[Rfam]
RNA sequence: UAGAGAGGUAGAGGCGCGAUGCUUAAUAGUACUUUUACAGAGGUAAGCACGAAGAAGUAAAAGGAAAGGAAUCAUCGCCGAAGCGUACAACCGAUGCUUUAAGGUUGUAAAGCUGGGGUUAUAUAUAAUAUAUAUAACACUGCCGCAAUUAUUGUGGAGAGCUAUCAUCUAA
Numbered sequence: 001u002a003g004a005g006a007g008g009u010a011g012a013g014g015c016g017c018g019a020u021g022c023u024u025a026a027u028a029g030u031a032c033u034u035u036u037a038c039a040g041a042g043g044u045a046a047g048c049a050c051g052a053a054g055a056a057g058u059a060a061a062a063g064g065a066a067a068g069g070a071a072u073c074a075u076c077g078c079c080g081a082a083g084c085g086u087a088c089a090a091c092c093g094a095u096g097c098u099u100u101a102a103g104g105u106u107g108u109a110a111a112g113c114u115g116g117g118g119u120u121a122u123a124u125a126u127a128a129u130a131u132a133u134a135u136a137a138c139a140c141u142g143c144c145g146c147a148a149u150u151a152u153u154g155u156g157g158a159g160a161g162c163u164a165u166c167a168u169c170u171a172a
Stems, first nucleotide, its partner, number of pairs: 007166005016078006023071002032063007082114003086109007115141002118138008143157006
Background:
Lysine riboswitch aptamer: a 172-nucleotide sequence from Clostridium fallax. The family's consensus secondary structure is taken from published work. Taxonomically the source falls in Clostridium (Bacteria, Bacillota, Eubacteriales, Clostridiaceae).